[Rfam]
RNA: c-di-GMP-I-GGC riboswitch aptamer
Organism: Cellulomonas fimi
RNA sequence: UCAGACAAGGGCACACCCGUCGCGAGGCGGGGCCGCAAAGCCACGGGACCCACGCGGUCAGCCGGGCUGCCGACC
Number, nucleotide and partner (000 for none) at each position: 001u000002c000003a000004g071005a000006c000007a000008a000009g000010g000011g036012c035013a000014c000015a000016c031017c030018c029019g028020u027021c026022g000023c000024g000025a000026g021027g020028c019029g018030g017031g016032g000033c000034c061035g012036c011037a000038a000039a068040g067041c066042c065043a000044c064045g063046g062047g059048a058049c057050c000051c000052a000053c000054g000055c000056g000057g049058u048059c047060a000061g034062c046063c045064g044065g042066g041067c040068u039069g000070c000071c004072g000073a000074c000075c000